[Rfam]
RNA sequence: CCUCUUUCCUUAAGCACGGGAUCCAUCCCGGCCUGUUCCUCAGAGGAGCCCUAUCAUGGCACUGAGCGUUGAAGACAAAGCCCAGAUCGUAAACGAGUUCAAGCAAAGCGAA
Numbered sequence: 001c002c003u004c005u006u007u008c009c010u011u012a013a014g015c016a017c018g019g020g021a022u023c024c025a026u027c028c029c030g031g032c033c034u035g036u037u038c039c040u041c042a043g044a045g046g047a048g049c050c051c052u053a054u055c056a057u058g059g060c061a062c063u064g065a066g067c068g069u070u071g072a073a074g075a076c077a078a079a080g081c082c083c084a085g086a087u088c089g090u091a092a093a094c095g096a097g098u099u100c101a102a103g104c105a106a107a108g109c110g111a112a
Stems, first nucleotide, its partner, number of pairs: 003020003007016001039066003045063002048060001
Notes: A member of the RNA family "Ribosomal S15 leader" from Pseudomonas oryzihabitans, 112 nucleotides long. About the family: The E. coli Ribosomal S15 gene 5' UTR can form two alternative structures. One that is a series of three hairpins, The other includes a pseudoknot. This structure causes translational regulation of the S15 protein. It scores 46 bits against the family's covariance model.